[Rfam]
RNA sequence: CCGCGCUAGAUGGGGAGCUCGCCGUGCCCUGUAACUCGCAAUCGGCGUAGCGGGGUUGAAUUCCUAUCUGAGGUCUAGAUUGUGUGAGGUCUGGUCUCUGUCGAAAGUGUUGACGAUUGGGUCCCGCGCAACGAAUACUUCUGAACCGUGUCAGGUCCUGACGGAAGCAGCACUAAGGAAGAGCAUUCGUGUGCCGUGGGAGUGCCUGAUUUGAGCUGGAGCCAGAGAGUCCGCUUGGGCGAUUUAGAUCAAAGGUAGGUGCGCGG
Numbered sequence: 001c002c003g004c005g006c007u008a009g010a011u012g013g014g015g016a017g018c019u020c021g022c023c024g025u026g027c028c029c030u031g032u033a034a035c036u037c038g039c040a041a042u043c044g045g046c047g048u049a050g051c052g053g054g055g056u057u058g059a060a061u062u063c064c065u066a067u068c069u070g071a072g073g074u075c076u077a078g079a080u081u082g083u084g085u086g087a088g089g090u091c092u093g094g095u096c097u098c099u100g101u102c103g104a105a106a107g108u109g110u111u112g113a114c115g116a117u118u119g120g121g122u123c124c125c126g127c128g129c130a131a132c133g134a135a136u137a138c139u140u141c142u143g144a145a146c147c148g149u150g151u152c153a154g155g156u157c158c159u160g161a162c163g164g165a166a167g168c169a170g171c172a173c174u175a176a177g178g179a180a181g182a183g184c185a186u187u188c189g190u191g192u193g194c195c196g197u198g199g200g201a202g203u204g205c206c207u208g209a210u211u212u213g214a215g216c217u218g219g220a221g222c223c224a225g226a227g228a229g230u231c232c233g234c235u236u237g238g239g240c241g242a243u244u245u246a247g248a249u250c251a252a253a254g255g256u257a258g259g260u261g262c263g264c265g266g
Base pairs, nucleotide, nucleotide: 001266002265003264004263005262006261009057010056011055012030013029014028015027017025018024035054036053037052038051039050063259064258065257066256067255068254069253072250073249074248075247076246079243080242081241082240083239085237086236087235088234092233093232095228096227097226098225099224100223103222106217107216108215115211116210117209118208119207120206121205122204123200124199125198126197127196128195129191130190132189133188134187135186136185138181139180140179141178142177148173149172150171151170156165157164158163

Rfam assigns this 266-nucleotide sequence from Seinonella peptonophila to the family "Bacterial large signal recognition particle RNA". The base pairs follow the family's consensus structure, which is taken from published work. The signal recognition particle (SRP) is a universally conserved ribonucleoprotein involved in the co-translational targeting of proteins to membranes. The match comes from Rfam's covariance-model search (182 bits). Rfam classes the family as a non-coding RNA gene.